A member of the RNA family "ASpks TB sRNA" from Streptomyces aculeolatus, 75 nucleotides long. The family has 77 seed sequences and 9,052 matches in Rfam 15.1. It is one of the family's seed sequences. The source organism's lineage runs through Bacteria, Bacillati, Actinomycetota, Streptomycetaceae and Streptomyces. The family's RNA type in Rfam is antisense RNA. A reference for the family is Arnvig and Young (2009), "Identification of small RNAs in Mycobacterium tuberculosis", Mol Microbiol.
Nucleotides: 075
Stems, first nucleotide, its partner, number of pairs: 015025003031071003038065002043060003047056003
Number, partner (000 for none) and nucleotide at each position: 001000c002000u003000u004000c005000a006000a007000c008000g009000a010000g011000c012000c013000g014000a015025g016024c017023c018000a019000c020000a021000g022000c023017g024016g025015c026000c027000g028000u029000u030000c031071c032070g033069c034000g035000g036000g037000c038065c039064g040000c041000c042000c043060c044059u045058g046000c047056c048055c049054g050000u051000a052000c053000g054049u055048g056047g057000c058045c059044a060043g061000c062000a063000g064039c065038g066000c067000c068000u069033g070032c071031g072000c073000c074000u075000c